Annotation: Rfam assigns this 131-nucleotide RNA sequence from Callorhinchus milii to the family "Small nucleolar RNA SNORA3/SNORA45 family". The literature on the family includes a 2001 paper in EMBO J by Huttenhofer et al., "RNomics: an experimental approach that identifies 201 candidates for novel, small, non-messenger RNAs in mouse". Lineage of the source: Eukaryota > Metazoa > Bilateria > Chondrichthyes > Callorhinchus. It is annotated as an H/ACA-box small nucleolar RNA. The family is grouped with related families in Rfam's "SNORA3 clan". Rfam 15.1 lists 2,080 matches to the family in 639 species. The members of this family belong to the H/ACA class of snoRNAs which are thought to guide the sites of modification of uridines to pseudouridines. This family includes mouse snoMBI-28 and human homologues ACA3 (SNORA3) and ACA3-2 (SNORA45). It scores 101 bits against the family's covariance model. The family's consensus secondary structure was predicted with RNAalifold.
RNA sequence: CCCGAGACUAGAGUCACAUCCUCACACUUGCUGUUGUCCUGGUGUGCUAUAGUACUCGAAGAAUAUCUACUGAUCUUAUUCACUGGCUGCAGCUUCUUAUAGCCCAGUCAGUCACCAGAUUAGUGACAUUA
Number, nucleotide and partner (000 for none) at each position: 001c000002c000003c058004g057005a056006g055007a053008c052009u051010a000011g000012a048013g047014u000015c046016a045017c044018a043019u042020c041021c000022u000023c000024a037025c036026a035027c000028u000029u000030g000031c000032u000033g000034u000035u026036g025037u024038c000039c000040u000041g020042g019043u018044g017045u016046g015047c013048u012049a000050u000051a009052g008053u007054a000055c006056u005057c004058g003059a000060a000061g000062a000063a000064u000065a000066u000067c000068u000069a000070c123071u122072g121073a120074u119075c118076u117077u000078a000079u000080u000081c000082a112083c111084u110085g109086g108087c000088u106089g105090c000091a000092g103093c102094u101095u000096c000097u000098u000099a000100u000101a094102g093103c092104c000105c089106a088107g000108u086109c085110a084111g083112u082113c000114a000115c000116c000117a076118g075119a074120u073121u072122a071123g070124u000125g000126a000127c000128a000129u000130u000131a000